[Rfam]
The family of this 69-nucleotide sequence is "int-alpA RNA".
Acidobacteria (1 example), Planctomycetes (1 example), Proteobacteria.
The sequence is in the family's curated seed alignment.
RNA sequence: CGUGUGCCUAGCCUGACGGGGCGAACGUGGGAUUCCUUUCACCCACUGGCACACCUUAUUCUUGAAAGG
Numbered sequence: 001c002g003u004g005u006g007c008c009u010a011g012c013c014u015g016a017c018g019g020g021g022c023g024a025a026c027g028u029g030g031g032a033u034u035c036c037u038u039u040c041a042c043c044c045a046c047u048g049g050c051a052c053a054c055c056u057u058a059u060u061c062u063u064g065a066a067a068g069g
Stems, first nucleotide, its partner, number of pairs: 002054007011022004027046005035069006